[Rfam]
Purine riboswitch aptamer: a 98-nucleotide RNA sequence from Oligoflexus sp. Pairs were carried over by alignment from the consensus structure, which is taken from published work.
RNA sequence: UAUACGAAAUCAUGAGUCUCUAAUAUAAGCCGAAAAUGUGGUUCGGCGUCUCUACAAAGCACCGUAAAUGCUUUUCUAUUAGGAAAAAACGAUGAUCC
Numbered sequence: 001u002a003u004a005c006g007a008a009a010u011c012a013u014g015a016g017u018c019u020c021u022a023a024u025a026u027a028a029g030c031c032g033a034a035a036a037u038g039u040g041g042u043u044c045g046g047c048g049u050c051u052c053u054a055c056a057a058a059g060c061a062c063c064g065u066a067a068a069u070g071c072u073u074u075u076c077u078a079u080u081a082g083g084a085a086a087a088a089a090c091g092a093u094g095a096u097c098c
Stems, first nucleotide, its partner, number of pairs: 019083007029047006056074006
Dot-bracket structure: ..................(((((((...((((((.......))))))........((((((.......))))))..)))))))...............
Riboswitches are metabolite binding domains within certain messenger RNAs that serve as precision sensors for their corresponding targets.